A member of the RNA family "tRNA" from Metamycoplasma hominis, 73 nucleotides long. Its family is annotated with triplet codon-amino acid adaptor activity in the Gene Ontology. The family's RNA type in Rfam is transfer RNA. Rfam describes the family as follows. Transfer RNA (tRNA) molecules are approximately 80 nucleotides in length. Their secondary structure includes four short double-helical elements and three loops (D, anti-codon, and T loops). Further hydrogen bonds mediate the characteristic L-shaped molecular structure. tRNAs have two regions of fundamental functional importance: the anti-codon, which is responsible for specific mRNA codon recognition, and the 3' end, to which the tRNAs corresponding amino acid is attached (by aminoacyl-tRNA synthetases). tRNAs cope with the degeneracy of the genetic code in two manners: having more than one tRNA (with a specific anti-codon) for a particular amino acid; and 'wobble' base-pairing, i.e. permitting non-standard base-pairing at the 3rd anti-codon position. The base pairs follow the family's consensus structure, which is taken from published work. The organism belongs to Metamycoplasma hominis, within Bacteria.

RNA sequence: GGCUCUGUAGCUCAGUUGGUAGAGCAACGGACUGAAGCUCCGUGUGUCACUGGUUCGAUUCCUGUCGGAGCCA
Numbered sequence: 001g002g003c004u005c006u007g008u009a010g011c012u013c014a015g016u017u018g019g020u021a022g023a024g025c026a027a028c029g030g031a032c033u034g035a036a037g038c039u040c041c042g043u044g045u046g047u048c049a050c051u052g053g054u055u056c057g058a059u060u061c062c063u064g065u066c067g068g069a070g071c072c073a
Base pairs, nucleotide, nucleotide: 001072002071003070004069005068006067007066010025011024012023013022027043028042029041030040031039049065050064052062053061